Record summary: Shown here is a 121-nucleotide RNA sequence from Pararhizobium antarcticum, a member of the family "Alphaproteobacterial ar14". Rfam classes the family as a small RNA. Taxonomically the source falls in Pararhizobium (Bacteria, Pseudomonadati, Hyphomicrobiales, Rhizobiaceae). On this family, see del Val et al., RNA Biol 2012: "A survey of sRNA families in alpha-proteobacteria". Smr14C2 was renamed NfeR1 (Nodule Formation Efficiency RNA) highly expressed in salt stress and during the symbiotic interaction on legume roots. Pairs were carried over by alignment from the consensus structure.
[Rfam]
RNA sequence: AGGCAUCGAAACGGUUCACCUCCUCCCGAACGCGUUUCGGUCCGACGGACAGCACUCCUCCUCCCAGCUGUCAGUCCUAAUUGAAAGCCCGGUGCACCUCCUCCCGCACCGGGCUUUUUCU
Numbered sequence: 001a002g003g004c005a006u007c008g009a010a011a012c013g014g015u016u017c018a019c020c021u022c023c024u025c026c027c028g029a030a031c032g033c034g035u036u037u038c039g040g041u042c043c044g045a046c047g048g049a050c051a052g053c054a055c056u057c058c059u060c061c062u063c064c065c066a067g068c069u070g071u072c073a074g075u076c077c078u079a080a081u082u083g084a085a086a087g088c089c090c091g092g093u094g095c096a097c098c099u100c101c102u103c104c105c106g107c108a109c110c111g112g113g114c115u116u117u118u119u120c121u
Stems, first nucleotide, its partner, number of pairs: 007039003011035003014031003044076003048072006085116011